[Rfam]
RNA sequence: UCCCACAAGAUUAGAACCAAUUUUUUUUUUCAUCUUUCCACUGAGGAUGUAUAUGCAGGACAAAUAGUUAAGGAAUUCUUCGUUUAUGAUGGGA
Numbered sequence: 001u002c003c004c005a006c007a008a009g010a011u012u013a014g015a016a017c018c019a020a021u022u023u024u025u026u027u028u029u030u031c032a033u034c035u036u037u038c039c040a041c042u043g044a045g046g047a048u049g050u051a052u053a054u055g056c057a058g059g060a061c062a063a064a065u066a067g068u069u070a071a072g073g074a075a076u077u078c079u080u081c082g083u084u085u086a087u088g089a090u091g092g093g094a
Stems, first nucleotide, its partner, number of pairs: 001094004
RNA: Small nucleolar RNA snR57
Organism: Zygosaccharomyces rouxii